[Rfam]
This 82-nucleotide sequence from Lupinus angustifolius belongs to the Rfam family "Small nucleolar RNA Z122". Rfam links the family to the GO terms RNA processing and nucleolus. It is annotated as a C/D-box small nucleolar RNA. The family has 23 seed sequences and 822 matches in Rfam 15.1.

Nucleotides: 082
Base pairs, nucleotide, nucleotide: 003080004079005078006077007076
Number, partner (000 for none) and nucleotide at each position: 001000u002000c003080u004079g005078g006077g007076a008000a009000a010000u011000g012000a013000u014000g015000g016000u017000a018000u019000a020000a021000a022000u023000u024000c025000a026000a027000a028000c029000a030000g031000a032000g033000g034000c035000g036000a037000u038000a039000g040000c041000u042000u043000u044000g045000c046000u047000g048000a049000a050000u051000u052000a053000a054000u055000u056000g057000u058000a059000u060000u061000u062000g063000c064000a065000c066000g067000u068000c069000a070000g071000u072000c073000u074000g075000a076007u077006c078005c079004c080003a081000a082000u